[Rfam]
RNA sequence: ACGGCGGAACCGAAAAGCCGAAGAUGAGUAGGAA
Numbered sequence: 001a002c003g004g005c006g007g008a009a010c011c012g013a014a015a016a017g018c019c020g021a022a023g024a025u026g027a028g029u030a031g032g033a034a
Stems, first nucleotide, its partner, number of pairs: 002020004010032002
Dot-bracket structure: .((((....[[.....))))..........]]..
RNA: DUF805b RNA